The family of this 73-nucleotide RNA sequence from Octodon degus is "mir-676 microRNA precursor family". For this family Rfam cites "Deep sequencing of human nuclear and cytoplasmic small RNAs reveals an unexpectedly complex subcellular distribution of miRNAs and tRNA 3' trailers" (Liao et al., PLoS One, 2010). The match comes from Rfam's covariance-model search (82 bits).
RNA sequence: CAUGCGUGACUCUUCAACCUCGGGACUGGCAGGGUAAAUGGAAUGUCGUCCUAAGGUUGUUGAGUUGUGCGUU
Numbered sequence: 001c002a003u004g005c006g007u008g009a010c011u012c013u014u015c016a017a018c019c020u021c022g023g024g025a026c027u028g029g030c031a032g033g034g035u036a037a038a039u040g041g042a043a044u045g046u047c048g049u050c051c052u053a054a055g056g057u058u059g060u061u062g063a064g065u066u067g068u069g070c071g072u073u
Stems, first nucleotide, its partner, number of pairs: 002072005010064003015059006022052005029046003